[Rfam]
Nucleotides: 096
Base pairs, nucleotide, nucleotide: 002091003090004089005088006087007086013081014080015079016078018077019076020075021074026072027071028070029069030068
Number, partner (000 for none) and nucleotide at each position: 001000g002091g003090g004089c005088c006087g007086g008000c009000u010000a011000u012000a013081g014080c015079c016078c017000a018077g019076c020075g021074g022000u023000u024000c025000c026072u027071u028070c029069g030068g031000c032000u033000g034000a035000u036000u037000g038000c039000g040000u041000u042000u043000c044000c045000c046000u047000c048000g049000c050000a051000c052000u053000c054000g055000c056000c057000c058000c059000g060000c061000c062000a063000g064000g065000g066000g067000u068030u069029c070028g071027a072026a073000c074021c075020c076019g077018c078016g079015g080014g081013c082000a083000c084000c085000c086007c087006u088005g089004g090003c091002c092000c093000u094000u095000u096000u

A member of the RNA family "Vault RNA" from Apteryx australis, 96 nucleotides long. A reference for the family is Stadler et al. (2009), "Evolution of Vault RNAs", Mol Biol Evol. Rfam's curators write: This family of RNAs are found as part of the enigmatic vault ribonucleoprotein complex. The organism belongs to Apteryx, within Eukaryota.